RNA sequence: UAUAGACGAAGGGAGCUCCCUUCAGUCCAAGCAAAGACCGCAUAGAGUCUAACUUUAUCUCCUGCAUCAUUCACUCAUCUACCAAGUCUCUUUCUCUGACUUAGUAUUUGAAUGAAUGAGUCAGCAGCUAAUUCAACCCUACAGCUGCCCAUGAGUGGACUGAAGGAAGCUCUCUUCAGGGGAUCC
Numbered sequence: 001u002a003u004a005g006a007c008g009a010a011g012g013g014a015g016c017u018c019c020c021u022u023c024a025g026u027c028c029a030a031g032c033a034a035a036g037a038c039c040g041c042a043u044a045g046a047g048u049c050u051a052a053c054u055u056u057a058u059c060u061c062c063u064g065c066a067u068c069a070u071u072c073a074c075u076c077a078u079c080u081a082c083c084a085a086g087u088c089u090c091u092u093u094c095u096c097u098g099a100c101u102u103a104g105u106a107u108u109u110g111a112a113u114g115a116a117u118g119a120g121u122c123a124g125c126a127g128c129u130a131a132u133u134c135a136a137c138c139c140u141a142c143a144g145c146u147g148c149c150c151a152u153g154a155g156u157g158g159a160c161u162g163a164a165g166g167a168a169g170c171u172c173u174c175u176u177c178a179g180g181g182g183a184u185c186c
Stems, first nucleotide, its partner, number of pairs: 013172005019166002023162007036149001059127002062124003068118004076110001

This 186-nucleotide sequence from Asparagus officinalis belongs to the Rfam family "MIR159 microRNA precursor family".
It scores 100 bits against the family's covariance model.